[Rfam]
RNA sequence: GUACCACAUGCAGGCUCGCGAAAAUGUUCUGAUUGGCAUUGAUAGAAUAAAUUGUCACCGGGGCCUUUUCGACGAGCUUUCCGUGGUUU
Number, nucleotide and partner (000 for none) at each position: 001g000002u000003a087004c086005c085006a084007c083008a000009u000010g000011c000012a079013g078014g077015c076016u075017c074018g073019c071020g070021a069022a068023a067024a066025u000026g064027u063028u062029c061030u060031g059032a000033u057034u000035g056036g055037c054038a053039u000040u000041g000042a000043u000044a000045g000046a000047a000048u000049a000050a000051a000052u000053u038054g037055u036056c035057a033058c000059c031060g030061g029062g028063g027064c026065c000066u024067u023068u022069u021070c020071g019072a000073c018074g017075a016076g015077c014078u013079u012080u000081c000082c000083g007084u006085g005086g004087u003088u000089u000
This 89-nucleotide RNA sequence from Rhipicephalus microplus belongs to the Rfam family "mir-5316 microRNA precursor family". It is one of the family's seed sequences. Rfam links the family to the GO terms miRNA-mediated post-transcriptional gene silencing and RISC complex.